[Rfam]
RNA: Small nucleolar RNA SNORA9
Organism: Aquarana catesbeiana
RNA sequence: GUGCAGGUCUUCCAGCGUGUCCGGGCUGACUGUAGCUCUGGCCACUCCUGUUGACUCUGCUAGAUCAUCCCUGGGGUGGUUUGAGGCCUCUUCCUGUAUUUCUGGGAGGAGGUUAUAGAAACCCCAGAAACUU
Numbered sequence: 001g002u003g004c005a006g007g008u009c010u011u012c013c014a015g016c017g018u019g020u021c022c023g024g025g026c027u028g029a030c031u032g033u034a035g036c037u038c039u040g041g042c043c044a045c046u047c048c049u050g051u052u053g054a055c056u057c058u059g060c061u062a063g064a065u066c067a068u069c070c071c072u073g074g075g076g077u078g079g080u081u082u083g084a085g086g087c088c089u090c091u092u093c094c095u096g097u098a099u100u101u102c103u104g105g106g107a108g109g110a111g112g113u114u115a116u117a118g119a120a121a122c123c124c125c126a127g128a129a130a131c132u133u
Stems, first nucleotide, its partner, number of pairs: 003060005018044002023038005072126005087112006094105003